The family of this 70-nucleotide RNA from Acipenser ruthenus is "mir-24 microRNA precursor family". Its family is annotated with RISC complex and miRNA-mediated post-transcriptional gene silencing in the Gene Ontology. A reference for the family is Ambros (2001), "microRNAs: tiny regulators with great potential", Cell.
RNA sequence: AUCUCCAGUGCCUACUGAGCUGAUAUCAGUGUGUCUACAGAAUACUGGCUCAGUUCAGCAGGAACAGGAG
Numbered sequence: 001a002u003c004u005c006c007a008g009u010g011c012c013u014a015c016u017g018a019g020c021u022g023a024u025a026u027c028a029g030u031g032u033g034u035c036u037a038c039a040g041a042a043u044a045c046u047g048g049c050u051c052a053g054u055u056c057a058g059c060a061g062g063a064a065c066a067g068g069a070g
Stems, first nucleotide, its partner, number of pairs: 003070004008065002011062003015058009026048005